[Rfam]
RNA sequence: UGGUUAAACUACACUCAGCGAUUUAAUUCGUUUCGUACGCAUGAAAUUAUAUCGUUAUUUUAUUUUAACCUAAAGAGAUAAUCUCUUCACCCUUCGUUGCUCUUCGACCGAAACGUUGGUCCGUCUGCCGCGCCUCCCUUUUCCAUCACGUAGUUUUAAAUUCUUUUAAGGCUAUUUGAUGGGGAAGGGAGGUGCGGCGGAGGGACCAACGCGUAGGUGGGGGAACAACUUAGGCGUGUUUUGAUUUCCCCCUUCAUAUUCCCGGCAUUUUCAACGCCCCCUUGGGGCACCUUCUUGUUAAGGGAUGUUGUUUCUGCCGUAACAAAACGGAGGGGCACAAAGAACGACGCUGUUAGGAGCGUAAAAAAAAAAACGGUGUGG
Dot-bracket structure: .(((((((........((((((..(((..................)))..)))))).......)))))))..............(.....(((..((((..............................................................................................................................))))..)))(((.((((......(((((((........((((....((((((((.....))))...(.((.....)).)..))))....))))((......)))))))))....)))))))..)................................
Numbered sequence: 001u002g003g004u005u006a007a008a009c010u011a012c013a014c015u016c017a018g019c020g021a022u023u024u025a026a027u028u029c030g031u032u033u034c035g036u037a038c039g040c041a042u043g044a045a046a047u048u049a050u051a052u053c054g055u056u057a058u059u060u061u062a063u064u065u066u067a068a069c070c071u072a073a074a075g076a077g078a079u080a081a082u083c084u085c086u087u088c089a090c091c092c093u094u095c096g097u098u099g100c101u102c103u104u105c106g107a108c109c110g111a112a113a114c115g116u117u118g119g120u121c122c123g124u125c126u127g128c129c130g131c132g133c134c135u136c137c138c139u140u141u142u143c144c145a146u147c148a149c150g151u152a153g154u155u156u157u158a159a160a161u162u163c164u165u166u167u168a169a170g171g172c173u174a175u176u177u178g179a180u181g182g183g184g185a186a187g188g189g190a191g192g193u194g195c196g197g198c199g200g201a202g203g204g205a206c207c208a209a210c211g212c213g214u215a216g217g218u219g220g221g222g223g224a225a226c227a228a229c230u231u232a233g234g235c236g237u238g239u240u241u242u243g244a245u246u247u248c249c250c251c252c253u254u255c256a257u258a259u260u261c262c263c264g265g266c267a268u269u270u271u272c273a274a275c276g277c278c279c280c281c282u283u284g285g286g287g288c289a290c291c292u293u294c295u296u297g298u299u300a301a302g303g304g305a306u307g308u309u310g311u312u313u314c315u316g317c318c319g320u321a322a323c324a325a326a327a328c329g330g331a332g333g334g335g336c337a338c339a340a341a342g343a344a345c346g347a348c349g350c351u352g353u354u355a356g357g358a359g360c361g362u363a364a365a366a367a368a369a370a371a372a373a374c375g376g377u378g379u380g381g
Stems, first nucleotide, its partner, number of pairs: 002070007017056006025048003085349001091234003096229004235346003239343004249335007264318004272310004276288004292304001294302002319328002